RNA sequence: UGACGUUCUCAGGGCAGGGUGUAAUUCCCUACCGGCGGUAAAGGGGUGGUGCGCUACCCCAAGCCCGCGAGCGCCUGCUUCGGCAGGGUCAGCAGAUCCGGUGUAACUCCGGAGCCGACGGUCAUAGUCCGGAUGAAAGAGAACGAGA
Numbered sequence: 001u002g003a004c005g006u007u008c009u010c011a012g013g014g015c016a017g018g019g020u021g022u023a024a025u026u027c028c029c030u031a032c033c034g035g036c037g038g039u040a041a042a043g044g045g046g047u048g049g050u051g052c053g054c055u056a057c058c059c060c061a062a063g064c065c066c067g068c069g070a071g072c073g074c075c076u077g078c079u080u081c082g083g084c085a086g087g088g089u090c091a092g093c094a095g096a097u098c099c100g101g102u103g104u105a106a107c108u109c110c111g112g113a114g115c116c117g118a119c120g121g122u123c124a125u126a127g128u129c130c131g132g133a134u135g136a137a138a139g140a141g142a143a144c145g146a147g148a
Base pairs, nucleotide, nucleotide: 004145005144006143007142008141009140010139017029018028019027031128032127033117034116035068036067037066038065063115064114071093072092097113098112099111100110101109119131120130121129
Shown here is a 148-nucleotide sequence from Acetobacter sp. DsW_54, a member of the family "FMN riboswitch aptamer (RFN element)". The source organism's lineage runs through Bacteria, Pseudomonadati, Pseudomonadota, Acetobacterales and Acetobacter. About the family: The RFN element is a highly conserved domain that is found frequently in the 5'-untranslated regions of prokaryotic mRNAs that encode for flavin mononucleotide (FMN) biosynthesis and transport proteins.